[Rfam]
RNA sequence: CGGCUGCAGGACGAAGUGAGUAAGCCCAUUAGCUCCUAUUUCAUUGGGAGUGGGGUUUGGAAAUUCCCCGGGCUCAUGACCGCAGAGAUGCGGAUUCGGAAACGAAUUUUAGAGCUGGCCUGGGUCCGAGGCUGAGACACGUGUGUGGAGCCGAUUGGAGAACCCGAAUGGUCCAGCUCAUUACUAGCCGAUAUCUACAGUGAUUCGCUUGAUCCCAUAAAUUAAUAACGGGAUUAACAGAACGGGGAUUACGAUCCUGCAGCC
Dot-bracket structure: .((((((((((..((((((..((((((.........................))))))...[[[.[[[[...........((((....))))((((((....)))))).((....(((..(...((((.(((......((....))...)))...)))).)..)))..))..................................)))))).(((((.............))))).........]]]]]]]....))))))))))
RNA: RNase MRP